A member of the RNA family "Bacterial large subunit ribosomal RNA" from a Bathymodiolus septemdierum thioautotrophic gill symbiont, 441 nucleotides of a longer RNA. Gene Ontology terms of the family: structural constituent of ribosome and ribosome. A search with the family's covariance model found it, with a score of 2876 bits.

RNA sequence: CUCUCCGAAAUCUAUUUAGGUAGAGCGUCAUGUAUUACUUCAGGGGGUAGAGCACUGUUAUGGCUAGCGGGUCGUCAAGACUUAGUAAACCAUUGCAAACUCCGAAUACCUGAAAGUAUGAGCAUGGCAGACACACUGCGGGUGCUAACGUCCGUAGUGGAAAGGGAAACAACCCAGACCGUCAGCUAAGGUCCCAAAAUUAUAGUUAAGUGGGAAACGAUGUGAAAAGGCCCAGACAGCCAGGAGGUUGGCUUAGAAGCAGCCAUUCCUUUAAAGAGUGCGUAAUAGCUCACUGGUCGAGUCGGUUUGCGCGGAAGAUUUAACGGGGCUAAAACUAUAUACCGAAGCUGCGGAUACUAAUUUAUUAGUAUGGUAGGAGAGCGUUCUGUAAGCCGUUGAAGGUGUCCUGUGAGGGAUGCUGGAGGUAUCAGAAGUGCGAAU
Numbered sequence: 001c002u003c004u005c006c007g008a009a010a011u012c013u014a015u016u017u018a019g020g021u022a023g024a025g026c027g028u029c030a031u032g033u034a035u036u037a038c039u040u041c042a043g044g045g046g047g048u049a050g051a052g053c054a055c056u057g058u059u060a061u062g063g064c065u066a067g068c069g070g071g072u073c074g075u076c077a078a079g080a081c082u083u084a085g086u087a088a089a090c091c092a093u094u095g096c097a098a099a100c101u102c103c104g105a106a107u108a109c110c111u112g113a114a115a116g117u118a119u120g121a122g123c124a125u126g127g128c129a130g131a132c133a134c135a136c137u138g139c140g141g142g143u144g145c146u147a148a149c150g151u152c153c154g155u156a157g158u159g160g161a162a163a164g165g166g167a168a169a170c171a172a173c174c175c176a177g178a179c180c181g182u183c184a185g186c187u188a189a190g191g192u193c194c195c196a197a198a199a200u201u202a203u204a205g206u207u208a209a210g211u212g213g214g215a216a217a218c219g220a221u222g223u224g225a226a227a228a229g230g231c232c233c234a235g236a237c238a239g240c241c242a243g244g245a246g247g248u249u250g251g252c253u254u255a256g257a258a259g260c261a262g263c264c265a266u267u268c269c270u271u272u273a274a275a276g277a278g279u280g281c282g283u284a285a286u287a288g289c290u291c292a293c294u295g296g297u298c299g300a301g302u303c304g305g306u307u308u309g310c311g312c313g314g315a316a317g318a319u320u321u322a323a324c325g326g327g328g329c330u331a332a333a334a335c336u337a338u339a340u341a342c343c344g345a346a347g348c349u350g351c352g353g354a355u356a357c358u359a360a361u362u363u364a365u366u367a368g369u370a371u372g373g374u375a376g377g378a379g380a381g382c383g384u385u386c387u388g389u390a391a392g393c394c395g396u397u398g399a400a401g402g403u404g405u406c407c408u409g410u411g412a413g414g415g416a417u418g419c420u421g422g423a424g425g426u427a428u429c430a431g432a433a434g435u436g437c438g439a440a441u
Stems, first nucleotide, its partner, number of pairs: 001381006011024005026130001027128007035121001036118003039114006050103001051101002056097003060093004067086002069083005134159010164175003179353004184349003190343003199340001201339006218313002222310005229303003239297005245270003250264003271275001276291001280289002354371007382436001384433005392426003401420008